SAM riboswitch aptamer (S box leader): a 112-nucleotide RNA sequence from Microlunatus antarcticus. Lineage of the source: Bacteria > Bacillati > Actinomycetota > Propionibacteriaceae > Microlunatus. The SAM riboswitch is found upstream of a number of genes which code for proteins involved in methionine or cysteine biosynthesis in Gram-positive bacteria.
RNA sequence: ACCACAUCCAGAGGGGACGAGGGAACGGCCCGACGACUCCCCGGCAACCGGCUGACAGCCAGACACGGUGCCACUUCCGGCUCGAGCGAUGGUCGCUCGAGACAGAUGAUGA
Numbered sequence: 001a002c003c004a005c006a007u008c009c010a011g012a013g014g015g016g017a018c019g020a021g022g023g024a025a026c027g028g029c030c031c032g033a034c035g036a037c038u039c040c041c042c043g044g045c046a047a048c049c050g051g052c053u054g055a056c057a058g059c060c061a062g063a064c065a066c067g068g069u070g071c072c073a074c075u076u077c078c079g080g081c082u083c084g085a086g087c088g089a090u091g092g093u094c095g096c097u098c099g100a101g102a103c104a105g106a107u108g109a110u111g112a
Base pairs, nucleotide, nucleotide: 002111005108006107007106008105013042014041015040016039017038021031022030023029026079027078028077043072044071045070046069048068049067050064052062053061076104081101082100083099084098085097086096087095088094